The family of this 101-nucleotide RNA from Tripterygium wilfordii is "Small nucleolar RNA Z157/R69/R10". The literature on the family includes a 2003 paper in Nucleic Acids Res by Chen et al., "The high diversity of snoRNAs in plants: identification and comparative study of 120 snoRNA genes from Oryza sativa". The family has 10 seed sequences and 836 matches in Rfam 15.1. The match comes from Rfam's covariance-model search (66 bits). Its Rfam clan is "SNORD52 clan".
[Rfam]
RNA sequence: GAAGAUUCCAGUGAUGAAGCAAUUUUUUGUGGACUAGAGUUUCUGAUCAGGGACGUAGUUCCUAUGGUUGAAGACUAACCCUUGGCUGUCUGAGAAUCGUU
Number, nucleotide and partner (000 for none) at each position: 001g101002a100003a000004g098005a097006u096007u095008c094009c000010a000011g000012u000013g000014a000015u000016g000017a000018a000019g000020c000021a000022a000023u000024u000025u000026u000027u000028u000029g000030u000031g000032g000033a000034c000035u000036a000037g000038a000039g000040u073041u072042u071043c070044u000045g000046a000047u066048c000049a063050g062051g061052g060053a000054c000055g000056u000057a000058g000059u000060u052061c051062c050063u049064a000065u000066g047067g000068u000069u000070g043071a042072a041073g040074a000075c000076u000077a000078a000079c000080c000081c000082u000083u000084g000085g000086c000087u000088g000089u000090c000091u000092g000093a000094g008095a007096a006097u005098c004099g000100u002101u001